The family of this 113-nucleotide sequence from Galemys pyrenaicus is "Small nucleolar RNA U6-53/MBII-28".
[Rfam]
RNA sequence: CCCCUAUGAUGAGUUGCCAUGCUAAUAUUGAGACACCAGGUAGGGUAUUUUUUUUUACCCUGCUCUGGGUGUUGUUGAGAUAAAUUCUGUUUUUUAAAAUCUACCUGAGGGGC
Numbered sequence: 001c002c003c004c005u006a007u008g009a010u011g012a013g014u015u016g017c018c019a020u021g022c023u024a025a026u027a028u029u030g031a032g033a034c035a036c037c038a039g040g041u042a043g044g045g046u047a048u049u050u051u052u053u054u055u056u057a058c059c060c061u062g063c064u065c066u067g068g069g070u071g072u073u074g075u076u077g078a079g080a081u082a083a084a085u086u087c088u089g090u091u092u093u094u095u096a097a098a099a100u101c102u103a104c105c106u107g108a109g110g111g112g113c
Base pairs, nucleotide, nucleotide: 001112002111003110004109041062042061043060044059045058046057047056
NCBI's taxonomy places the organism under Eukaryota, Bilateria, Vertebrata, Mammalia, Galemys.